Source information: A member of the RNA family "IS605-orfB-I RNA", 218 nucleotides long.

RNA sequence: ACCUUAUAAAGAUGUAGUUACGCAAGACAGUAACGCAUUUCCCUUUAAGGUGAUGUUUGAAUAGAAGUAUAAGCGAGAAGUCUUAUUGAGAAGCUUCGAGUUGAAAUAGGAUGAGCUUAUAUGGAAAAGGUUAACCGUAAGACCUUAUGAUGAAAAACAUUAAAAUUGGCCUAAGAAUAAGAGAAUUCUGAAUUUUCGUUAUUUUUAGUUACGGUUUC
Numbered sequence: 001a002c003c004u005u006a007u008a009a010a011g012a013u014g015u016a017g018u019u020a021c022g023c024a025a026g027a028c029a030g031u032a033a034c035g036c037a038u039u040u041c042c043c044u045u046u047a048a049g050g051u052g053a054u055g056u057u058u059g060a061a062u063a064g065a066a067g068u069a070u071a072a073g074c075g076a077g078a079a080g081u082c083u084u085a086u087u088g089a090g091a092a093g094c095u096u097c098g099a100g101u102u103g104a105a106a107u108a109g110g111a112u113g114a115g116c117u118u119a120u121a122u123g124g125a126a127a128a129g130g131u132u133a134a135c136c137g138u139a140a141g142a143c144c145u146u147a148u149g150a151u152g153a154a155a156a157a158c159a160u161u162a163a164a165a166u167u168g169g170c171c172u173a174a175g176a177a178u179a180a181g182a183g184a185a186u187u188c189u190g191a192a193u194u195u196u197c198g199u200u201a202u203u204u205u206u207a208g209u210u211a212c213g214g215u216u217u218c
Stems, first nucleotide, its partner, number of pairs: 001051006008044001010040006017034005022028001067122008081111007092102002095099001128145005134215006140166001147160003151156001171208010181197006